This 136-nucleotide RNA sequence from Pogona vitticeps belongs to the Rfam family "Small nucleolar RNA SNORA29". Rfam links the family to the GO terms RNA processing and nucleolus. ACA29 is a member of the H/ACA class of snoRNA that guide the sites of modification of uridines to pseudouridines.

RNA sequence: UUUCCCAUUUGACUACCACUUAAUUUACACUAUAAAGUAAGUGGCUAUGCUUAUGGGAUAAAGAAAUGACUGCCAGAGUCUGAAGGAGGAGAUUGACUGUUUCUUUUUCCUAUAUGAAAUGGCAGAACAUCCUAUU
Number, nucleotide and partner (000 for none) at each position: 001u000002u000003u000004c057005c056006c055007a054008u000009u000010u000011g000012a000013c000014u000015a000016c044017c043018a042019c041020u000021u000022a000023a000024u000025u000026u000027a000028c000029a000030c000031u000032a000033u000034a000035a000036a000037g000038u000039a000040a000041g019042u018043g017044g016045c000046u000047a000048u000049g000050c000051u000052u000053a000054u007055g006056g005057g004058a000059u000060a000061a000062a000063g000064a000065a000066a000067u000068g000069a000070c000071u000072g123073c122074c121075a120076g000077a000078g000079u000080c000081u000082g000083a000084a000085g000086g000087a000088g000089g000090a111091g110092a000093u000094u000095g000096a000097c000098u000099g000100u000101u000102u000103c000104u000105u000106u000107u000108u000109c000110c091111u090112a000113u000114a000115u000116g000117a000118a000119a000120u075121g074122g073123c072124a000125g000126a000127a000128c000129a000130u000131c000132c000133u000134a000135u000136u000